Notes
The family of this 115-nucleotide sequence from Aureimonas pseudogalii is "EcpR1". Rfam describes the family as follows. Perviously named SmelC291, SmrC10, or Sra33. According to its overproduction phenotype it was renamed Elongated Cell Phenotype RNA1. The literature on the family includes a 2012 paper in RNA Biol by Wilms et al., "Deep sequencing uncovers numerous small RNAs on all four replicons of the plant pathogen Agrobacterium tumefaciens".

[Rfam]
RNA sequence: UUCCCCAUGGAAUGCUCAGGUCCGCCGCAUCUCCUGGGUCCCGUGGGGCGGUCGGUCGGCAGCCGGUCAUAUGCGGUGUCCUCGCGCCGCGAUUGGCCUGCCGGCCGGCCACUUC
Numbered sequence: 001u002u003c004c005c006c007a008u009g010g011a012a013u014g015c016u017c018a019g020g021u022c023c024g025c026c027g028c029a030u031c032u033c034c035u036g037g038g039u040c041c042c043g044u045g046g047g048g049c050g051g052u053c054g055g056u057c058g059g060c061a062g063c064c065g066g067u068c069a070u071a072u073g074c075g076g077u078g079u080c081c082u083c084g085c086g087c088c089g090c091g092a093u094u095g096g097c098c099u100g101c102c103g104g105c106c107g108g109c110c111a112c113u114u115c
Base pairs, nucleotide, nucleotide: 003048004047005046006045007044008043009042010041015038016037017036018035019034020033050110051109052108053107054106055105056104057103058102059101060100